[Rfam]
RNA: Group II catalytic intron D1-D4-6
Organism: Thiorhodovibrio frisius
RNA sequence: AGAGUCCCGCCCGGGUAAUCGUGAGCCGCGAGCCCGGUAUCAAGCCUUACGGCGCGAAGGGUAACUGACGCGUCGGUGCGUAGGCAUGAAAACAGGCGAGGUGCAAAGGUAGCGGGUGAAGCCGCCCCUGAAGGUGUAGAGCCCCGAAAAGAAUUUGUCGGAGAGUGCCGACGGGUUUGUCCCCCCGGCAGGCAACACUCCAUGUCGCGUCAAGGUCAGUGGCAUGGAGACUCCCCGGGGUCCGAGGCCG
Numbered sequence: 001a002g003a004g005u006c007c008c009g010c011c012c013g014g015g016u017a018a019u020c021g022u023g024a025g026c027c028g029c030g031a032g033c034c035c036g037g038u039a040u041c042a043a044g045c046c047u048u049a050c051g052g053c054g055c056g057a058a059g060g061g062u063a064a065c066u067g068a069c070g071c072g073u074c075g076g077u078g079c080g081u082a083g084g085c086a087u088g089a090a091a092a093c094a095g096g097c098g099a100g101g102u103g104c105a106a107a108g109g110u111a112g113c114g115g116g117u118g119a120a121g122c123c124g125c126c127c128c129u130g131a132a133g134g135u136g137u138a139g140a141g142c143c144c145c146g147a148a149a150a151g152a153a154u155u156u157g158u159c160g161g162a163g164a165g166u167g168c169c170g171a172c173g174g175g176u177u178u179g180u181c182c183c184c185c186c187g188g189c190a191g192g193c194a195a196c197a198c199u200c201c202a203u204g205u206c207g208c209g210u211c212a213a214g215g216u217c218a219g220u221g222g223c224a225u226g227g228a229g230a231c232u233c234c235c236c237g238g239g240g241u242c243c244g245a246g247g248c249c250g
Stems, first nucleotide, its partner, number of pairs: 012036004019031004025216002038091001040089002044085004048080001050075007059066002139242001141241006160235002163233004167193003172187004198229011